[Rfam]
RNA: PyrR binding site
Organism: Melghiribacillus thermohalophilus
RNA sequence: AGGACCUUUAAUUUAGUCCAGUGAGGCUGAAAAGGUCGCAAUGAAGGAACUGUCGGGGGGAGAGUAUAACCUCUGACAGGCCGUAGGGGAGAAAUGUACCUCUUUGCGACCUUUCGCAAAGAGGUUUUUUAG
Numbered sequence: 001a002g003g004a005c006c007u008u009u010a011a012u013u014u015a016g017u018c019c020a021g022u023g024a025g026g027c028u029g030a031a032a033a034g035g036u037c038g039c040a041a042u043g044a045a046g047g048a049a050c051u052g053u054c055g056g057g058g059g060g061a062g063a064g065u066a067u068a069a070c071c072u073c074u075g076a077c078a079g080g081c082c083g084u085a086g087g088g089g090a091g092a093a094a095u096g097u098a099c100c101u102c103u104u105u106g107c108g109a110c111c112u113u114u115c116g117c118a119a120a121g122a123g124g125u126u127u128u129u130u131a132g
Base pairs, nucleotide, nucleotide: 003037004036005035006034007033008032009031013030014029015028016027017026018025050079051078052077053076054075055074056073057072058071059070096127098125099124100123101122102121103120104119105118106117107116108115109114
Dot-bracket structure: ..(((((((...((((((......)))))))))))))............((((((((((..........))))))))))................(.((((((((((((....)))))))))))).).....